[Rfam]
RNA sequence: GUGCAUCAAUACCUUGGCUCUAGACUGCUUACUGCUUAAAACUCAUUGUAACAGUCUACAGUCAUGGCUACUGACGUCUG
Dot-bracket structure: ...........((.((((....(((((.((((...............)))))))))....)))).)).............
Numbered sequence: 001g002u003g004c005a006u007c008a009a010u011a012c013c014u015u016g017g018c019u020c021u022a023g024a025c026u027g028c029u030u031a032c033u034g035c036u037u038a039a040a041a042c043u044c045a046u047u048g049u050a051a052c053a054g055u056c057u058a059c060a061g062u063c064a065u066g067g068c069u070a071c072u073g074a075c076g077u078c079u080g
Stems, first nucleotide, its partner, number of pairs: 012067002015064004023056005029051004
Shown here is an 80-nucleotide RNA from Oncorhynchus kisutch, a member of the family "mir-132 microRNA precursor family". The family's consensus secondary structure was predicted with RNAalifold. The source organism's lineage runs through Eukaryota, Actinopteri, Salmoniformes, Salmoninae and Oncorhynchus. It scores 67 bits against the family's covariance model.